A member of the RNA family "SAM-I/IV (S-adenosyl methionine) riboswitch aptamer" from Olleya namhaensis, 98 nucleotides long. Clan: SAM clan. On this family, see Trausch et al., PNAS 2014: "Structural basis for diversity in the SAM clan of riboswitches".
Nucleotides: 098
Stems, first nucleotide, its partner, number of pairs: 006070005015032005033060003038056003041052002045094001047092001072082003
Number, partner (000 for none) and nucleotide at each position: 001000a002000u003000u004000a005000a006070u007069u008068a009067u010066c011000a012000a013000g014000a015032a016031u017030c018029u019028c020000a021000a022000u023000a024000a025000a026000a027000g028019g029018a030017g031016a032015u033060a034059g035058c036000a037000a038056c039055c040054u041052g042051c043000a044000a045094u046000a047092a048000c049000a050000a051042g052041c053000a054040a055039g056038g057000u058035g059034c060033u061000a062000a063000a064000u065000a066010g067009a068008u069007a070006a071000g072082c073081c074080a075000u076000u077000a078000a079000u080074u081073g082072g083000a084000a085000c086000a087000a088000a089000u090000g091000u092047u093000a094045a095000c096000a097000c098000a